[Rfam]
Record summary: The family of this 106-nucleotide RNA from Algicella marina is "Guanidine-I riboswitch aptamer". The organism belongs to Algicella, within Bacteria. This family represents a conserved RNA structure found upstream of the ykkC and yxkD genes in Bacillus subtilis and related genes in other bacteria. The function of this family is unclear although it has been suggested that it may function to switch on efflux pumps and detoxification systems in response to harmful environmental molecules. It scores 82 bits against the family's covariance model.
Nucleotides: 106
Stems, first nucleotide, its partner, number of pairs: 007056006015046002020043002022040001023037006057079005062073003081101001083104001087099003
Number, partner (000 for none) and nucleotide at each position: 001000g002000c003000g004000c005000a006000g007056g008055g009054u010053g011052u012051c013000u014000a015046g016045g017000g018000u019000u020043c021042c022040g023037c024036u025035u026034u027033c028032g029000a030000u031000u032028u033027g034026a035025a036024a037023g038000g039000a040022c041000c042021g043020g044000u045016c046015c047000g048000a049000g050000a051012g052011a053010u054009g055008c056007c057079g058078c059077c060076g061075g062073c063072g064071c065000c066000c067000a068000c069000a070000u071064g072063c073062g074000c075061c076060c077059g078058g079057u080000a081101c082000a083104c084000g085000g086000c087099g088098g089097g090000g091000c092000a093000a094000a095000a096000u097089c098088c099087c100000g101081g102000g103000a104083g105000a106000g